The family of this 112-nucleotide RNA sequence is "drum RNA". Rfam describes the family as follows. Firmicutes, Bacteroidetes (1 example), Proteobacteria (2 examples), Spirochaetes (2 examples). Pairs were carried over by alignment from the consensus structure, which is taken from published work. It is annotated as a small RNA.

[Rfam]
RNA sequence: UGGCGUUGAAGCAGUGGACUGGUUCGGUUUCAGCCGAUUGUGGAGCCUGCCCGUGGGUUAUGCGACAACCACAAGCCGAAUAGAUUCUUUGAAUCGAACAAAAACGCUUAAU
Numbered sequence: 001u002g003g004c005g006u007u008g009a010a011g012c013a014g015u016g017g018a019c020u021g022g023u024u025c026g027g028u029u030u031c032a033g034c035c036g037a038u039u040g041u042g043g044a045g046c047c048u049g050c051c052c053g054u055g056g057g058u059u060a061u062g063c064g065a066c067a068a069c070c071a072c073a074a075g076c077c078g079a080a081u082a083g084a085u086u087c088u089u090u091g092a093a094u095c096g097a098a099c100a101a102a103a104a105c106g107c108u109u110a111a112u
Base pairs, nucleotide, nucleotide: 002047003046004045011041012040013039014038015037017035019033020032021031024079025078026077027076062107063106064105083095084094085093086092